About this RNA:
Shown here is a 113-nucleotide RNA sequence from Opacimonas viscosa, a member of the family "Ribosomal S15 leader". The match comes from Rfam's covariance-model search (86 bits). The family is grouped with related families in Rfam's "Ribosomal Protein S15 Leader clan". About the family: The E. coli Ribosomal S15 gene 5' UTR can form two alternative structures. The literature on the family includes a 1996 paper in Biochimie by Benard et al., "Pseudoknot and translational control in the expression of the S15 ribosomal protein".
RNA sequence: CGACAUAGCUGAAUUAGUGAUUGGCUAUGUUUACAUUUAAUUUUUUGGAGAUAAUUAUGUCACUAAGUACUCAAGAAACAGCAGCAAUCAUUGCUGAAUAUGCGACUAAAGAA
Dot-bracket structure: ......((((((........)))))).................(((((.(..........).)))))..............................................